[Rfam]
The record is a 65-nucleotide RNA from Buphagus erythrorhynchus, which matches "Bacillus-plasmid RNA" in Rfam.
The family's RNA type in Rfam is small RNA.
RNA sequence: GGAGUCAAUGGUAUCAGUAGUGCCUGUGUAGAGUGUAAGGGGUAAUUAUUGACUCCUACAAUAAA
Numbered sequence: 001g002g003a004g005u006c007a008a009u010g011g012u013a014u015c016a017g018u019a020g021u022g023c024c025u026g027u028g029u030a031g032a033g034u035g036u037a038a039g040g041g042g043u044a045a046u047u048a049u050u051g052a053c054u055c056c057u058a059c060a061a062u063a064a065a
Stems, first nucleotide, its partner, number of pairs: 001056012